[Rfam]
Nucleotides: 049
Stems, first nucleotide, its partner, number of pairs: 002019007036049005
Number, partner (000 for none) and nucleotide at each position: 001000c002019g003018g004017c005016c006015g007014g008013g009000a010000c011000g012000a013008c014007c015006c016005g017004g018003u019002c020000a021000a022000g023000c024000a025000a026000g027000g028000a029000g030000c031000a032000u033000c034000a035000g036049c037048c038047g039046g040045g041000a042000c043000g044000a045040c046039c047038c048037g049036g